[Rfam]
Iron response element I: a 36-nucleotide sequence from Ornithodoros moubata. Its family is annotated with response to iron ion in the Gene Ontology. The base pairs follow the family's consensus structure, which is taken from published work.
RNA sequence: CGGUGUUUUGCUUCAACAGUGUUUGAACGAGCAUCG
Number, nucleotide and partner (000 for none) at each position: 001c036002g035003g034004u033005g032006u031007u030008u029009u000010g028011c000012u027013u026014c025015a024016a023017c021018a000019g000020u000021g017022u000023u016024u015025g014026a013027a012028c010029g008030a007031g006032c005033a004034u003035c002036g001